[Rfam]
RNA sequence: UUUGAGAGGAGUGUUGGCUGGUCCGAUGCAAUCACUAUAGCUAUGUGUGAGCAUCUGCGGUUCGUCAUGUUGACACGCAGAAACACACACUAAUAGCAUGUAUGGAGGCCUCGGACCAGGCUUCAUUCCCCUCAAA
Numbered sequence: 001u002u003u004g005a006g007a008g009g010a011g012u013g014u015u016g017g018c019u020g021g022u023c024c025g026a027u028g029c030a031a032u033c034a035c036u037a038u039a040g041c042u043a044u045g046u047g048u049g050a051g052c053a054u055c056u057g058c059g060g061u062u063c064g065u066c067a068u069g070u071u072g073a074c075a076c077g078c079a080g081a082a083a084c085a086c087a088c089a090c091u092a093a094u095a096g097c098a099u100g101u102a103u104g105g106a107g108g109c110c111u112c113g114g115a116c117c118a119g120g121c122u123u124c125a126u127u128c129c130c131c132u133c134a135a136a
Base pairs, nucleotide, nucleotide: 001136002135003134004133005132006131008129009128010127011126012125013124016121018119019118020117021116024113025112026111
Rfam assigns this 136-nucleotide RNA sequence from Coffea arabica to the family "mir-166 microRNA precursor family". Gene Ontology terms of the family: miRNA-mediated post-transcriptional gene silencing and RISC complex. About the family: This family represents the plant microRNA (miRNA) precursor mir-166. The organism belongs to Coffea, within Eukaryota. It scores 66 bits against the family's covariance model.